[Rfam]
RNA sequence: GACCCGGUAGCUCAGCUGGAUAGAGCAACUGCCUUCUAAGCAGUUGGUCGGGGGUUCGAAUCCCUCUCGGGUCA
Dot-bracket structure: (((((((..((((.........)))).(((((.......))))).....(((((.......)))))))))))).
Rfam assigns this 74-nucleotide RNA sequence from Leptospira idonii to the family "tRNA". A search with the family's covariance model found it, with a score of 69 bits. NCBI's taxonomy places the organism under Bacteria, Spirochaetota, Leptospirales, Leptospiraceae, Leptospira. By type it is a transfer RNA.